[Rfam]
RNA sequence: CUCUUAUCAAGAGUAGGUGGAGGGACCAGCCCUAUGAAGCCCGGCAACCGACAGAUCCGUCAGCAGACGGGGACGCACGGUGCUAAUUCUUGCGGGAACAUGUUUGAUGUUUCUGGGAGAUGAGAG
Numbered sequence: 001c002u003c004u005u006a007u008c009a010a011g012a013g014u015a016g017g018u019g020g021a022g023g024g025a026c027c028a029g030c031c032c033u034a035u036g037a038a039g040c041c042c043g044g045c046a047a048c049c050g051a052c053a054g055a056u057c058c059g060u061c062a063g064c065a066g067a068c069g070g071g072g073a074c075g076c077a078c079g080g081u082g083c084u085a086a087u088u089c090u091u092g093c094g095g096g097a098a099c100a101u102g103u104u105u106g107a108u109g110u111u112u113c114u115g116g117g118a119g120a121u122g123a124g125a126g
Stems, first nucleotide, its partner, number of pairs: 001126008013042001016041003022032003026092001028090002043084004048080002050076001088118001093115009